[Rfam]
RNA sequence: GUCUUUCGGGCCUGCUCUGCUGAUUAUCAGUGUGUCUCUAUAGCUGCUGGCUCAGUUCAGCAGGACCAAGAG
Numbered sequence: 001g002u003c004u005u006u007c008g009g010g011c012c013u014g015c016u017c018u019g020c021u022g023a024u025u026a027u028c029a030g031u032g033u034g035u036c037u038c039u040a041u042a043g044c045u046g047c048u049g050g051c052u053c054a055g056u057u058c059a060g061c062a063g064g065a066c067c068a069a070g071a072g
Stems, first nucleotide, its partner, number of pairs: 003072004008067002011064003015060002019056005027050005

The family of this 72-nucleotide RNA sequence from Chanos chanos is "mir-24 microRNA precursor family". Rfam links the family to the GO terms miRNA-mediated post-transcriptional gene silencing and RISC complex. For this family Rfam cites "Identification of novel genes coding for small expressed RNAs" (Lagos-Quintana et al., Science, 2001). The family has 63 seed sequences and 1,372 matches in Rfam 15.1. About the family: This family represents the microRNA (miRNA) mir-24 family. miRNAs are transcribed as ~70nt precursors (modelled here) and subsequently processed by the Dicer enzyme to give a ~22nt product. The base pairs follow the family's consensus structure, which was predicted with RNAalifold. Taxonomically the source falls in Chanos (Eukaryota, Metazoa, Eumetazoa, Chordata).